[Rfam]
Nucleotides: 134
Stems, first nucleotide, its partner, number of pairs: 003128001013118004019055003025049005033042003057073005076101011102111002
Number, partner (000 for none) and nucleotide at each position: 001000a002000a003128u004000u005000a006000a007000a008000u009000a010000a011000a012000a013118c014117u015116c016115c017000g018000a019055g020054c021053c022000c023000g024000c025049c026048u027047u028046c029045c030000u031000a032000a033042g034041g035040c036000a037000g038000a039000u040035g041034c042033u043000a044000c045029g046028g047027g048026g049025g050000c051000g052000u053021g054020g055019c056000c057073u058072g059071g060070g061069g062000c063000u064000u065000a066000c067000g068000a069061c070060c071059c072058c073057a074000c075000a076101g077100g078099g079098u080097u081096g082095u083094a084093g085092g086091a087000g088000a089000a090000a091086u092085c093084c094083u095082a096081c097080a098079g099078c100077c101076u102111c103110c104000c105000u106000g107000u108000a109000u110103g111102g112000a113000a114000a115016g116015g117014a118013g119000g120000a121000g122000a123000u124000g125000c126000u127000c128003a129000g130000g131000c132000a133000u134000g
The record is a 134-nucleotide RNA from Thermacetogenium phaeum, which matches "Molybdenum/Tungsten riboswitch aptamer (Moco RNA motif)" in Rfam. It scores 81 bits against the family's covariance model. Gene Ontology terms of the family: regulation of gene expression, tungstate binding and molybdenum ion binding. The base pairs follow the family's consensus structure, which is taken from published work.